[Rfam]
RNA sequence: GGUCAGUGAUGUGAUGUAAAAGGUCUGAAGCUCAGGUCCCCCAUCAGCCAUUUUAGCUCCCAACAGCCCCUGCUCUGUGCUCCCAUCAUGCUCUAGUGGUGCAGCGAUGGUCCCAGUAGCUGUUGACAGACAGGAUGUGCCAUUGCAGUGUAAAGAGUCUGUACAGAGAGCCUACAGAUUCAGCGUGAUGCAGACAUCCAACAGAACCAAUCACUAUGGAGUGUCAGGCUGAGGAGGCGGGUCCUGAGCGCUGAUCUCAUUCCUGUACUGAGACC
Numbered sequence: 001g002g003u004c005a006g007u008g009a010u011g012u013g014a015u016g017u018a019a020a021a022g023g024u025c026u027g028a029a030g031c032u033c034a035g036g037u038c039c040c041c042c043a044u045c046a047g048c049c050a051u052u053u054u055a056g057c058u059c060c061c062a063a064c065a066g067c068c069c070c071u072g073c074u075c076u077g078u079g080c081u082c083c084c085a086u087c088a089u090g091c092u093c094u095a096g097u098g099g100u101g102c103a104g105c106g107a108u109g110g111u112c113c114c115a116g117u118a119g120c121u122g123u124u125g126a127c128a129g130a131c132a133g134g135a136u137g138u139g140c141c142a143u144u145g146c147a148g149u150g151u152a153a154a155g156a157g158u159c160u161g162u163a164c165a166g167a168g169a170g171c172c173u174a175c176a177g178a179u180u181c182a183g184c185g186u187g188a189u190g191c192a193g194a195c196a197u198c199c200a201a202c203a204g205a206a207c208c209a210a211u212c213a214c215u216a217u218g219g220a221g222u223g224u225c226a227g228g229c230u231g232a233g234g235a236g237g238c239g240g241g242u243c244c245u246g247a248g249c250g251c252u253g254a255u256c257u258c259a260u261u262c263c264u265g266u267a268c269u270g271a272g273a274c275c
Base pairs, nucleotide, nucleotide: 001275002274003273004272034257035256036255037254038253042234044232045231046230047229048228049227057221058220059219060218061125062124063123064122065121066120067119083110084109085108086107087106089104091101133199134198135197136196137195138194155181156180157179158178159177160176161175162174163173

This 275-nucleotide RNA from Mola mola belongs to the Rfam family "Small Cajal body specific RNA 6". A search with the family's covariance model found it, with a score of 94 bits. The organism belongs to Mola, within Eukaryota. Rfam describes the family as follows. U88 is small Cajal body specific RNA (scaRNA). scaRNAs are a novel class of small nuclear RNAs which localise to the Cajal bodies. The family has 17 seed sequences and 1,309 matches in Rfam 15.1. The family's consensus secondary structure is taken from published work.